[Rfam]
RNA sequence: AGAGUGAGGGAGGCGGAAUGGCUGGUACUGAAGUAAUGACUGCACACAGUACCAGACAUGCCGCCCCCUUCCCUCUAC
Dot-bracket structure: ((((.((((..(((((.((..(((((((((................)))))))))..)).)))))..)))).))))..
Rfam assigns this 78-nucleotide sequence from Eptesicus fuscus to the family "mir-9186 microRNA precursor family". The base pairs follow the family's consensus structure, which was predicted with RNAalifold. It is one of the family's seed sequences. Taxonomically the source falls in Eptesicus (Eukaryota, Craniata, Euteleostomi, Theria). The family has 31 seed sequences and 143 matches in Rfam 15.1.